Shown here is a 443-nucleotide part of an RNA from Sphingobacterium allocomposti, a member of the family "Bacterial large subunit ribosomal RNA". It scores 2709 bits against the family's covariance model. NCBI's taxonomy places the organism under Bacteria, Sphingobacteriia, Sphingobacteriales, Sphingobacteriaceae, Sphingobacterium. The base pairs follow the family's consensus structure, which is taken from published work.
[Rfam]
RNA sequence: CUCCCCGAAAUGUUUUUAGGAACAGCGUCGUUUAUAGAGUCUGCUAGAGGUAGAGCUACCGAUUGGGUGCGGGGGAGUCAAAUCCUACCAAAUCCAGACGAACUCCGAAUGCUAUGCAGAUAUUGGCGGCAGUGAGGCUUUGGGUGCUAAGGUCCAAGGCCGAGAGGGAAAGAACCCAGACCAUCAGCUAAGGUCCCCAAAUGUAGUCUAAGUUGAACUAACGAGGUCCGGUUGCCCAGACAGCUAGGAUGUUGGCUUGGAAGCAGCCAUUCAUUUAAAGAGUGCGUAACAGCUCACUAGUCGAGCGGCCGGGCGUGGAUAAUAAACGGGCAUCAAGACUGCUACCGAAGCUAUGGAUUGCAAUUUAUUGCACUGGUAGGGGAGCAUUCCAUGCGGGGCGAAUCCGUCAGGUGACUGGUGGUGGACUGCAUGGAAAAGCAAAU
Numbered sequence: 001c002u003c004c005c006c007g008a009a010a011u012g013u014u015u016u017u018a019g020g021a022a023c024a025g026c027g028u029c030g031u032u033u034a035u036a037g038a039g040u041c042u043g044c045u046a047g048a049g050g051u052a053g054a055g056c057u058a059c060c061g062a063u064u065g066g067g068u069g070c071g072g073g074g075g076a077g078u079c080a081a082a083u084c085c086u087a088c089c090a091a092a093u094c095c096a097g098a099c100g101a102a103c104u105c106c107g108a109a110u111g112c113u114a115u116g117c118a119g120a121u122a123u124u125g126g127c128g129g130c131a132g133u134g135a136g137g138c139u140u141u142g143g144g145u146g147c148u149a150a151g152g153u154c155c156a157a158g159g160c161c162g163a164g165a166g167g168g169a170a171a172g173a174a175c176c177c178a179g180a181c182c183a184u185c186a187g188c189u190a191a192g193g194u195c196c197c198c199a200a201a202u203g204u205a206g207u208c209u210a211a212g213u214u215g216a217a218c219u220a221a222c223g224a225g226g227u228c229c230g231g232u233u234g235c236c237c238a239g240a241c242a243g244c245u246a247g248g249a250u251g252u253u254g255g256c257u258u259g260g261a262a263g264c265a266g267c268c269a270u271u272c273a274u275u276u277a278a279a280g281a282g283u284g285c286g287u288a289a290c291a292g293c294u295c296a297c298u299a300g301u302c303g304a305g306c307g308g309c310c311g312g313g314c315g316u317g318g319a320u321a322a323u324a325a326a327c328g329g330g331c332a333u334c335a336a337g338a339c340u341g342c343u344a345c346c347g348a349a350g351c352u353a354u355g356g357a358u359u360g361c362a363a364u365u366u367a368u369u370g371c372a373c374u375g376g377u378a379g380g381g382g383a384g385c386a387u388u389c390c391a392u393g394c395g396g397g398g399c400g401a402a403u404c405c406g407u408c409a410g411g412u413g414a415c416u417g418g419u420g421g422u423g424g425a426c427u428g429c430a431u432g433g434a435a436a437a438g439c440a441a442a443u
Stems, first nucleotide, its partner, number of pairs: 001384006011024005026132001027130006038123001039121006045114003053106001054104002060100002064096004071089002073086004136161010166177003181356004186352003192346003201343001203342006222317002226314010243301005249274003254268003275279001280295001284293002357374001359372005385438001387435010404421007